[Rfam]
RNA sequence: GGAGUCGGCCAGGCGGUCGCGGACCGCGCCGGGUGCGCGGAUCCGAGGAAAGUCCGGACUCCACAGGGCAGGGUGGUCGGUAACACCGACCCGGGGCGACCCGCGGGACAGUGCCACAGAAAACAGACCGCCACCGCUUGCGGUGGUAAGGGUGAAACGGUGGUGUAAGAGACCACCAGCGGCCGGAGUGAUCCGGUCGGCUGGGUAAACCCCACCCGGAGCAAGGUCAAAAAGGGAGCCCUCCGGGGCUCCUGCGCGGAUGUUCGAGGGCGGCCCGCCCGAGUCCGCGGGUAGACCGCACCGAGGUCGUCGGCAACGGCGAUCCCAGAUGGAUGACCGCCCGAUCCCACGGGAUCGACAGAAUCCGGCUUAUCGGCCGACUCCCCUC
Numbered sequence: 001g002g003a004g005u006c007g008g009c010c011a012g013g014c015g016g017u018c019g020c021g022g023a024c025c026g027c028g029c030c031g032g033g034u035g036c037g038c039g040g041a042u043c044c045g046a047g048g049a050a051a052g053u054c055c056g057g058a059c060u061c062c063a064c065a066g067g068g069c070a071g072g073g074u075g076g077u078c079g080g081u082a083a084c085a086c087c088g089a090c091c092c093g094g095g096g097c098g099a100c101c102c103g104c105g106g107g108a109c110a111g112u113g114c115c116a117c118a119g120a121a122a123a124c125a126g127a128c129c130g131c132c133a134c135c136g137c138u139u140g141c142g143g144u145g146g147u148a149a150g151g152g153u154g155a156a157a158c159g160g161u162g163g164u165g166u167a168a169g170a171g172a173c174c175a176c177c178a179g180c181g182g183c184c185g186g187a188g189u190g191a192u193c194c195g196g197u198c199g200g201c202u203g204g205g206u207a208a209a210c211c212c213c214a215c216c217c218g219g220a221g222c223a224a225g226g227u228c229a230a231a232a233a234g235g236g237a238g239c240c241c242u243c244c245g246g247g248g249c250u251c252c253u254g255c256g257c258g259g260a261u262g263u264u265c266g267a268g269g270g271c272g273g274c275c276c277g278c279c280c281g282a283g284u285c286c287g288c289g290g291g292u293a294g295a296c297c298g299c300a301c302c303g304a305g306g307u308c309g310u311c312g313g314c315a316a317c318g319g320c321g322a323u324c325c326c327a328g329a330u331g332g333a334u335g336a337c338c339g340c341c342c343g344a345u346c347c348c349a350c351g352g353g354a355u356c357g358a359c360a361g362a363a364u365c366c367g368g369c370u371u372a373u374c375g376g377c378c379g380a381c382u383c384c385c386c387u388c
Stems, first nucleotide, its partner, number of pairs: 001384010011373001012341007020045004024040005050371003054368005059221004066276004071217005076090005091105001092103004106212002111210002113206003128151002130147007159177006179201001180199008225297004235288001238285001240283001268280004305324008
A member of the RNA family "Bacterial RNase P class A" from Nocardiopsis algeriensis, 388 nucleotides long.
Gene Ontology terms of the family: dimeric ribonuclease P complex, ribonuclease P activity and tRNA processing.
Its Rfam clan is "RNaseP clan".
The match comes from Rfam's covariance-model search (296 bits).
The base pairs follow the family's consensus structure, which is taken from published work.
Rfam classes the family as a ribozyme.